[Rfam]
RNA sequence: AUUGAUUCUAACGGGUGUUUCACUUUAUUGUGGAACUGAGAUCAUACCGUUCUAACUCGAUCAAGAUAAUGCUUGCGUGAGGACCUGAAUACUUUGUUUCU
Numbered sequence: 001a002u003u004g005a006u007u008c009u010a011a012c013g014g015g016u017g018u019u020u021c022a023c024u025u026u027a028u029u030g031u032g033g034a035a036c037u038g039a040g041a042u043c044a045u046a047c048c049g050u051u052c053u054a055a056c057u058c059g060a061u062c063a064a065g066a067u068a069a070u071g072c073u074u075g076c077g078u079g080a081g082g083a084c085c086u087g088a089a090u091a092c093u094u095u096g097u098u099u100c101u
Stems, first nucleotide, its partner, number of pairs: 006089003011050004016044001017036007056081004062075004

Rfam assigns this 101-nucleotide sequence to the family "TPP riboswitch aptamer (THI element)".